Shown here is a 125-nucleotide RNA from Aotus nancymaae, a member of the family "U4atac minor spliceosomal RNA". Rfam describes the family as follows. U4atac is an essential component of the minor U12-type spliceosome complex which is required for removal of the rarer class of eukaryotic introns (AT-AC, U12-type). The source organism's lineage runs through Eukaryota, Bilateria, Teleostomi, Primates and Aotus. Its family is annotated with mRNA 5'-splice site recognition, pre-mRNA 5'-splice site binding and U4atac snRNP in the Gene Ontology. Rfam 15.1 lists 1,648 matches to the family in 818 species.

RNA sequence: GCCAUCCUUUCCUUGGGCUUGUGCUACUGUCCAAUGCGCACAUAGUGAGAGCAGUACCGCUAACCCUAAACAACACACCCACAUCAACUACAGCUUUGCUUUACCUUGGUGCAAUUUUUGGAAAA
Numbered sequence: 001g002c003c004a005u006c007c008u009u010u011c012c013u014u015g016g017g018c019u020u021g022u023g024c025u026a027c028u029g030u031c032c033a034a035u036g037c038g039c040a041c042a043u044a045g046u047g048a049g050a051g052c053a054g055u056a057c058c059g060c061u062a063a064c065c066c067u068a069a070a071c072a073a074c075a076c077a078c079c080c081a082c083a084u085c086a087a088c089u090a091c092a093g094c095u096u097u098g099c100u101u102u103a104c105c106u107u108g109g110u111g112c113a114a115u116u117u118u119u120g121g122a123a124a125a
Stems, first nucleotide, its partner, number of pairs: 007017003021060003026055005032049001038046002082111005089103002092100003